[Rfam]
RNA sequence: UGCUGUAAUCCCUUCAAAGGGGAAACGUGGCGGACGGGGGUUCGAUUCCCCCCAGCUCCACCAAAGACAUUCUCGGCCAGCACGUUCGUUCCUAGGUGUGAGAAGGUGGCUGCGAUACUGCCGGGUGGUUGCUAGGAACAUCAUUCGGAAAGUCCAGCUAGAGAAUGUCUCUGAUGGGGCUGUUCAGGAUUCGACGCCGCGCGUACUUAGCGAAGGCAGCAAGGAAAGGCGACGCACCUUGACGCGCGCAAAUCGAUAAACGCCAACGAUACUUCGUUCGACGUUCGCCUCGCAGCCUAA
Numbered sequence: 001u002g003c004u005g006u007a008a009u010c011c012c013u014u015c016a017a018a019g020g021g022g023a024a025a026c027g028u029g030g031c032g033g034a035c036g037g038g039g040g041u042u043c044g045a046u047u048c049c050c051c052c053c054a055g056c057u058c059c060a061c062c063a064a065a066g067a068c069a070u071u072c073u074c075g076g077c078c079a080g081c082a083c084g085u086u087c088g089u090u091c092c093u094a095g096g097u098g099u100g101a102g103a104a105g106g107u108g109g110c111u112g113c114g115a116u117a118c119u120g121c122c123g124g125g126u127g128g129u130u131g132c133u134a135g136g137a138a139c140a141u142c143a144u145u146c147g148g149a150a151a152g153u154c155c156a157g158c159u160a161g162a163g164a165a166u167g168u169c170u171c172u173g174a175u176g177g178g179g180c181u182g183u184u185c186a187g188g189a190u191u192c193g194a195c196g197c198c199g200c201g202c203g204u205a206c207u208u209a210g211c212g213a214a215g216g217c218a219g220c221a222a223g224g225a226a227a228g229g230c231g232a233c234g235c236a237c238c239u240u241g242a243c244g245c246g247c248g249c250a251a252a253u254c255g256a257u258a259a260a261c262g263c264c265a266a267c268g269a270u271a272c273u274u275c276g277u278u279c280g281a282c283g284u285u286c287g288c289c290u291c292g293c294a295g296c297c298u299a300a
Stems, first nucleotide, its partner, number of pairs: 001221005015210001017208001026201003030197003036052005053182007222239003
The family of this 300-nucleotide RNA sequence is "permuted transfer-messenger RNA".
A reference for the family is Williams and Bartel (1996), "Phylogenetic analysis of tmRNA secondary structure", RNA.
The family's consensus secondary structure is taken from published work.
The match comes from Rfam's covariance-model search (119 bits).